Shown here is a 116-nucleotide RNA from Araneus ventricosus, a member of the family "U5 spliceosomal RNA". Rfam classes the family as a spliceosomal small nuclear RNA.
[Rfam]
RNA sequence: AUGCUCUGGUUUCUCUUCAACAACGUGCUAAUCUUUCGCCUUUUACUAAAGAUUACCGUGGAGAGGAACAACUUAAUGAGCCUAUGCCAAUUUUUGGAAUCCCACUUCGGUGGGAU
Numbered sequence: 001a002u003g004c005u006c007u008g009g010u011u012u013c014u015c016u017u018c019a020a021c022a023a024c025g026u027g028c029u030a031a032u033c034u035u036u037c038g039c040c041u042u043u044u045a046c047u048a049a050a051g052a053u054u055a056c057c058g059u060g061g062a063g064a065g066g067a068a069c070a071a072c073u074u075a076a077u078g079a080g081c082c083u084a085u086g087c088c089a090a091u092u093u094u095u096g097g098a099a100u101c102c103c104a105c106u107u108c109g110g111u112g113g114g115a116u
Stems, first nucleotide, its partner, number of pairs: 003081004009069011029055008098116001100115006
U5 RNA is a component of both types of known spliceosome. The literature on the family includes a 1997 paper in Nucleic Acids Res by Zwieb, "The uRNA database". The organism belongs to Araneus, within Eukaryota.